[Rfam]
RNA sequence: UGAGUUGGCCAGACAAUCGCUGCUCUAUUCGCAUUUAUGUGUUUUAGAGGGGAGGAAAGUCCGGGCUCCAUAGGGCAGGGUGCCAGAUAACGUCUGGGCGGCGAAAGCCGACGACAAGUGCAGCAGAGAGAAGACCGCCUUGUUGCAAAACGAGGUAAGGGUGAAAGGGUGCGGUAAGAGCGCACCGCGCAACUGGUAACAGUUUGUGGCGAGGUAAACUCCACUCGGAGCAAGACCAAAUAGGUUCCCUUACGGCGCGGCCCGCGUUGGGAACGGGUAGGUUGCUUGAGCCAGUGAGCAAUUGCUGGCCUAGAGGAAUGAUUGUCAUUCUUUACUCUAUACUUCGGUAUUGUUUAAAGAACCACAGAACCCGGCUUAUCGGCCAACUCAACAC
Numbered sequence: 001u002g003a004g005u006u007g008g009c010c011a012g013a014c015a016a017u018c019g020c021u022g023c024u025c026u027a028u029u030c031g032c033a034u035u036u037a038u039g040u041g042u043u044u045u046a047g048a049g050g051g052g053a054g055g056a057a058a059g060u061c062c063g064g065g066c067u068c069c070a071u072a073g074g075g076c077a078g079g080g081u082g083c084c085a086g087a088u089a090a091c092g093u094c095u096g097g098g099c100g101g102c103g104a105a106a107g108c109c110g111a112c113g114a115c116a117a118g119u120g121c122a123g124c125a126g127a128g129a130g131a132a133g134a135c136c137g138c139c140u141u142g143u144u145g146c147a148a149a150a151c152g153a154g155g156u157a158a159g160g161g162u163g164a165a166a167g168g169g170u171g172c173g174g175u176a177a178g179a180g181c182g183c184a185c186c187g188c189g190c191a192a193c194u195g196g197u198a199a200c201a202g203u204u205u206g207u208g209g210c211g212a213g214g215u216a217a218a219c220u221c222c223a224c225u226c227g228g229a230g231c232a233a234g235a236c237c238a239a240a241u242a243g244g245u246u247c248c249c250u251u252a253c254g255g256c257g258c259g260g261c262c263c264g265c266g267u268u269g270g271g272a273a274c275g276g277g278u279a280g281g282u283u284g285c286u287u288g289a290g291c292c293a294g295u296g297a298g299c300a301a302u303u304g305c306u307g308g309c310c311u312a313g314a315g316g317a318a319u320g321a322u323u324g325u326c327a328u329u330c331u332u333u334a335c336u337c338u339a340u341a342c343u344u345c346g347g348u349a350u351u352g353u354u355u356a357a358a359g360a361a362c363c364a365c366a367g368a369a370c371c372c373g374g375c376u377u378a379u380c381g382g383c384c385a386a387c388u389c390a391a392c393a394c
Stems, first nucleotide, its partner, number of pairs: 001390010011379001012326007020052002023049005057377003061374005066230004073263004078226005083097005098112001099110004113221002118219002120215002135160002137156008168186006187210001188208005193202003234283004244274006254268005290309008
Source information: The family of this 394-nucleotide RNA from Glaciecola sp. KUL10 is "Bacterial RNase P class A". A search with the family's covariance model found it, with a score of 334 bits. NCBI's taxonomy places the organism under Bacteria, Pseudomonadota, Gammaproteobacteria, Alteromonadaceae, Glaciecola. The family's consensus secondary structure is taken from published work. Rfam classes the family as a ribozyme.